[Rfam]
RNA sequence: GCCCCCUUAGCUCAGUUGGUUAGAGCUACGGACUUUUAAUCCGCAGGUCGAGGGUUCGAGUCCCUCAGGGGGUA
Numbered sequence: 001g002c003c004c005c006c007u008u009a010g011c012u013c014a015g016u017u018g019g020u021u022a023g024a025g026c027u028a029c030g031g032a033c034u035u036u037u038a039a040u041c042c043g044c045a046g047g048u049c050g051a052g053g054g055u056u057c058g059a060g061u062c063c064c065u066c067a068g069g070g071g072g073u074a
Stems, first nucleotide, its partner, number of pairs: 001073007010026004029043004050066005

tRNA: a 74-nucleotide RNA from Actinomyces graevenitzii. It is annotated as a transfer RNA. Taxonomically the source falls in Actinomyces graevenitzii (Bacteria, Bacillati, Actinomycetales, Actinomyces). Pairs were carried over by alignment from the consensus structure, which is taken from published work.